[Rfam]
RNA sequence: UAGAAUAUCAGGCAAAACCUCUGAAAAGUGGUGACGCAAAGCUAUAGGGACUACUUCUUAACCGAGAAAUGUCAGCCAGUUGCAACC
Numbered sequence: 001u002a003g004a005a006u007a008u009c010a011g012g013c014a015a016a017a018c019c020u021c022u023g024a025a026a027a028g029u030g031g032u033g034a035c036g037c038a039a040a041g042c043u044a045u046a047g048g049g050a051c052u053a054c055u056u057c058u059u060a061a062c063c064g065a066g067a068a069a070u071g072u073c074a075g076c077c078a079g080u081u082g083c084a085a086c087c
Base pairs, nucleotide, nucleotide: 012037013036017032018031019030021028022027040081041080042079043078047077048076049073050072051071056067057066058065059064
Annotation
Shown here is an 87-nucleotide RNA sequence from Bacillus sp. FJAT-26390, a member of the family "c-di-GMP-I riboswitch aptamer". The source organism's lineage runs through Bacteria, Bacillati, Bacilli, Caryophanales and Bacillus. A search with the family's covariance model found it, with a score of 66 bits.